[Rfam]
The record is a 170-nucleotide RNA from Thermaerobacillus caldiproteolyticus, which matches "Lysine riboswitch aptamer" in Rfam.
RNA sequence: AGAUGAGAUAGAAGUUGCAAUGAAUAAAAAUAGCUUGAACAAGACGCAGAGAUUCAAUGAAUUCAAACGAAAGGAUUCAUUGUGAGCUCUGGCGCUGCAAGCUGGACCUGCAUUCGAACAGAAGCAGGACUGUCAUCGUUUCAAGCAAACGAUGGAGAGCUAUCAACAUU
Numbered sequence: 001a002g003a004u005g006a007g008a009u010a011g012a013a014g015u016u017g018c019a020a021u022g023a024a025u026a027a028a029a030a031u032a033g034c035u036u037g038a039a040c041a042a043g044a045c046g047c048a049g050a051g052a053u054u055c056a057a058u059g060a061a062u063u064c065a066a067a068c069g070a071a072a073g074g075a076u077u078c079a080u081u082g083u084g085a086g087c088u089c090u091g092g093c094g095c096u097g098c099a100a101g102c103u104g105g106a107c108c109u110g111c112a113u114u115c116g117a118a119c120a121g122a123a124g125c126a127g128g129a130c131u132g133u134c135a136u137c138g139u140u141u142c143a144a145g146c147a148a149a150c151g152a153u154g155g156a157g158a159g160c161u162a163u164c165a166a167c168a169u170u
Stems, first nucleotide, its partner, number of pairs: 007164005017083009033068001035066005085103004104131002107128005113122002133155007
Pairs were carried over by alignment from the consensus structure, which is taken from published work.